The family of this 105-nucleotide RNA sequence from Streptomyces sp. YIM 121038 is "che1 RNA". It scores 83 bits against the family's covariance model.
RNA sequence: GGGACAGGGGGGUCUCUGCCCGUAGUCGCGGCAGGGCCUGUCCCGGCAGGGUUGUGCGUGAUGAGUCAGGCGCGACCAGUGGUUGUCGCUCGGGGGCGAUCGCCG
Numbered sequence: 001g002g003g004a005c006a007g008g009g010g011g012g013u014c015u016c017u018g019c020c021c022g023u024a025g026u027c028g029c030g031g032c033a034g035g036g037c038c039u040g041u042c043c044c045g046g047c048a049g050g051g052u053u054g055u056g057c058g059u060g061a062u063g064a065g066u067c068a069g070g071c072g073c074g075a076c077c078a079g080u081g082g083u084u085g086u087c088g089c090u091c092g093g094g095g096g097c098g099a100u101c102g103c104c105g
Stems, first nucleotide, its partner, number of pairs: 001044008014036007050077008
The base pairs follow the family's consensus structure, which is taken from published work. The family's RNA type in Rfam is small RNA. NCBI's taxonomy places the organism under Bacteria, Actinomycetes, Kitasatosporales, Streptomycetaceae, Streptomyces.